Qrr RNA: a 109-nucleotide sequence from Vibrio viridaestus. Rfam links the family to the GO term quorum sensing. The match comes from Rfam's covariance-model search (94 bits). The family has 30 seed sequences and 148 matches in Rfam 15.1. Rfam describes the family as follows. This family represents a set of small RNAs (the Qrr RNAs) that are thought to be involved in the regulation of quorum sensing in Vibrio species. It is believed that these RNAs, guided by a protein, Hfq, can mediate the destabilisation of the quorum-sensing master regulators LuxR/HapR mRNAs.
[Rfam]
RNA sequence: UGACCCUUUUAAGCCGAGGGUCACCUAGCCAACUGACGUUGUUAGUGAAUUGAAUAUUGUUCACACCUUAUAUCUGCCAGCCACACUUCUUGUGACUGGCUUUUUUUUA
Numbered sequence: 001u002g003a004c005c006c007u008u009u010u011a012a013g014c015c016g017a018g019g020g021u022c023a024c025c026u027a028g029c030c031a032a033c034u035g036a037c038g039u040u041g042u043u044a045g046u047g048a049a050u051u052g053a054a055u056a057u058u059g060u061u062c063a064c065a066c067c068u069u070a071u072a073u074c075u076g077c078c079a080g081c082c083a084c085a086c087u088u089c090u091u092g093u094g095a096c097u098g099g100c101u102u103u104u105u106u107u108u109a
Base pairs, nucleotide, nucleotide: 001023002022003021004020005019006018040072041071042070045064046063047062048061049060050059077099078098079097080096082094083093084092